RNA sequence: AUACCUUCUCGGCCUUUUGGCUAAGAUCAAGUGUAGUAUCUGUUCUUAUCAGAGUGAUAUCUGAUAUCUCCUACGAGGAGAAUGAUAUCACUGCAAUUUUUAAAUGGGGCUGGGUUUACUUGGGGCUUGCCCCGGUCCCAGCAUAGUCGACCCUGACUUACACGACCUCGGGGAACGGCUAACCCGCU
Numbered sequence: 001a002u003a004c005c006u007u008c009u010c011g012g013c014c015u016u017u018u019g020g021c022u023a024a025g026a027u028c029a030a031g032u033g034u035a036g037u038a039u040c041u042g043u044u045c046u047u048a049u050c051a052g053a054g055u056g057a058u059a060u061c062u063g064a065u066a067u068c069u070c071c072u073a074c075g076a077g078g079a080g081a082a083u084g085a086u087a088u089c090a091c092u093g094c095a096a097u098u099u100u101u102a103a104a105u106g107g108g109g110c111u112g113g114g115u116u117u118a119c120u121u122g123g124g125g126c127u128u129g130c131c132c133c134g135g136u137c138c139c140a141g142c143a144u145a146g147u148c149g150a151c152c153c154u155g156a157c158u159u160a161c162a163c164g165a166c167c168u169c170g171g172g173g174a175a176c177g178g179c180u181a182a183c184c185c186g187c188u
Stems, first nucleotide, its partner, number of pairs: 007026003011022004047066006068080005109142006116135001122133004144181006151173006
Rfam assigns this 188-nucleotide sequence from Paramecium tetraurelia to the family "U2 spliceosomal RNA". U2 is a small nuclear RNA (snRNA) component of the spliceosome (involved in pre-mRNA splicing). Complementary binding between U2 snRNA (in an area lying towards the 5' end but 3' to hairpin I) and the branchpoint sequence (BPS) of the intron results the bulging out of an unpaired adenosine, on the BPS, which initiates a nucleophilic attack at the intronic 5' splice site, thus starting the first of two transesterification reactions that mediate splicing. The literature on the family includes a 1997 paper in Nucleic Acids Res by Zwieb, "The uRNA database". Its Rfam clan is "U2 clan". It is annotated as a spliceosomal small nuclear RNA. The sequence is in the family's curated seed alignment.